[Rfam]
RNA: Bacterial RNase P class A
Organism: Corynebacterium glutamicum
RNA sequence: UGAGGCAACCGGGUGAUUGCGUUCGACGAACUGGGGGAUUGCUCCCAAGCGUCGGCCGAGGAAAGUCCGGACUCCACAGAGCACGGUGGUUGUUAACAACAACCCGGAGCGAUCCGCGGGAAAGUGCAACAGAGAGUAAACCGCCAUCAACUUAGGUUGGUGGUAAGGGUGAAAGGGUGCGGUAAGAGCGCACCGGCAGGUCAGGUGACUGAUUUGGCCAGGUAAACCCCACCGGGAGCAAGGCAUGAGGACGUAUCCAAUGGUAUGUCUGUGCAGGUGUUGAAGGCUGCUCGCCAAGCCUGCAGGUAGCUGCUAGAGGCAGUCAGCAAUGGCUGCGACGAGAUGGAUGAUCGCCGCCGGUUGCUUUUGCAACUGGUACAGAAUCCGGCUUAUAGGUUGGCUCAUUCG
Numbered sequence: 001u002g003a004g005g006c007a008a009c010c011g012g013g014u015g016a017u018u019g020c021g022u023u024c025g026a027c028g029a030a031c032u033g034g035g036g037g038a039u040u041g042c043u044c045c046c047a048a049g050c051g052u053c054g055g056c057c058g059a060g061g062a063a064a065g066u067c068c069g070g071a072c073u074c075c076a077c078a079g080a081g082c083a084c085g086g087u088g089g090u091u092g093u094u095a096a097c098a099a100c101a102a103c104c105c106g107g108a109g110c111g112a113u114c115c116g117c118g119g120g121a122a123a124g125u126g127c128a129a130c131a132g133a134g135a136g137u138a139a140a141c142c143g144c145c146a147u148c149a150a151c152u153u154a155g156g157u158u159g160g161u162g163g164u165a166a167g168g169g170u171g172a173a174a175g176g177g178u179g180c181g182g183u184a185a186g187a188g189c190g191c192a193c194c195g196g197c198a199g200g201u202c203a204g205g206u207g208a209c210u211g212a213u214u215u216g217g218c219c220a221g222g223u224a225a226a227c228c229c230c231a232c233c234g235g236g237a238g239c240a241a242g243g244c245a246u247g248a249g250g251a252c253g254u255a256u257c258c259a260a261u262g263g264u265a266u267g268u269c270u271g272u273g274c275a276g277g278u279g280u281u282g283a284a285g286g287c288u289g290c291u292c293g294c295c296a297a298g299c300c301u302g303c304a305g306g307u308a309g310c311u312g313c314u315a316g317a318g319g320c321a322g323u324c325a326g327c328a329a330u331g332g333c334u335g336c337g338a339c340g341a342g343a344u345g346g347a348u349g350a351u352c353g354c355c356g357c358c359g360g361u362u363g364c365u366u367u368u369g370c371a372a373c374u375g376g377u378a379c380a381g382a383a384u385c386c387g388g389c390u391u392a393u394a395g396g397u398u399g400g401c402u403c404a405u406u407c408g
Base pairs, nucleotide, nucleotide: 001404002403003402004401006399007398008397009396010395011393012355013354014353015352016351017350018349020058021057023055024054025053026052027051028050063391064390065389067388068387069386070385071384072238073237074236075235079292080291081290082289084234085233086232087231088230089103090102091101092100093099104118105116106115107114108113119229120228124227125226126223127222141168142167143164144163145162146161147160148159149158150157151156176194177193178192179191180190181189196218197216198215199214200213201212202211203210204209242311243310244309273303274302275301276300277299278298285295286294287293319336320335321334322333323332324331325330